[Rfam]
RNA: Small nucleolar RNA Z221/R21b
Organism: Arabis nemorensis
Nucleotides: 082
Stems, first nucleotide, its partner, number of pairs: 001082004
Number, partner (000 for none) and nucleotide at each position: 001082a002081g003080g004079c005000a006000g007000u008000g009000a010000g011000g012000a013000a014000c015000g016000a017000g018000u019000a020000u021000g022000u023000c024000a025000u026000g027000c028000a029000c030000c031000a032000c033000u034000c035000u036000g037000a038000u039000u040000u041000u042000u043000u044000u045000g046000u047000g048000c049000u050000g051000a052000u053000u054000a055000u056000c057000a058000a059000c060000u061000c062000u063000a064000c065000c066000c067000a068000u069000a070000u071000u072000a073000a074000u075000c076000u077000g078000a079004g080003c081002c082001u